[Rfam]
Rfam assigns this 97-nucleotide RNA from Ornithinimicrobium ciconiae to the family "Mycobacterium sRNA ncrMT1302".
It is annotated as a small RNA.
The match comes from Rfam's covariance-model search (47 bits).
The family's consensus secondary structure was predicted with WAR.
The literature on the family includes a 2012 paper in Gene by Pelly et al., "A screen for non-coding RNA in Mycobacterium tuberculosis reveals a cAMP-responsive RNA that is expressed during infection".

RNA sequence: AAGUGGCCGAUCCGAAGUGCCGGUGUGCGGGUGCAAGCCGGCCGCGCUGGAUAGCAAAGACGCCCCGCAGUGCCCUCCCGGACCCGCCUCCAGUCGU
Dot-bracket structure: ..(.(((............((((....(....)....))))..(((..............)))........))).)...(((......)))......
Numbered sequence: 001a002a003g004u005g006g007c008c009g010a011u012c013c014g015a016a017g018u019g020c021c022g023g024u025g026u027g028c029g030g031g032u033g034c035a036a037g038c039c040g041g042c043c044g045c046g047c048u049g050g051a052u053a054g055c056a057a058a059g060a061c062g063c064c065c066c067g068c069a070g071u072g073c074c075c076u077c078c079c080g081g082a083c084c085c086g087c088c089u090c091c092a093g094u095c096g097u
Stems, first nucleotide, its partner, number of pairs: 003076001005074003020041004028033001044063003080091003